This 87-nucleotide sequence from Triticum aestivum belongs to the Rfam family "MIR1120/MIR1122 microRNA precursor family". On this family, see Yao et al., Genome Biol 2007: "Cloning and characterization of microRNAs from wheat (Triticum aestivum L.)". Its family is annotated with miRNA-mediated post-transcriptional gene silencing and RISC complex in the Gene Ontology.
[Rfam]
RNA sequence: CCACUCCCUCCGUCCCAUAAUAUAAGAACGUUUUUCAAGCUAACAUAGUUUGAAAAACGUUCUUAUAUUAUGGGACAGAGGGAGUAG
Numbered sequence: 001c002c003a004c005u006c007c008c009u010c011c012g013u014c015c016c017a018u019a020a021u022a023u024a025a026g027a028a029c030g031u032u033u034u035u036c037a038a039g040c041u042a043a044c045a046u047a048g049u050u051u052g053a054a055a056a057a058c059g060u061u062c063u064u065a066u067a068u069u070a071u072g073g074g075a076c077a078g079a080g081g082g083a084g085u086a087g
Stems, first nucleotide, its partner, number of pairs: 003085003007081004013075005019069023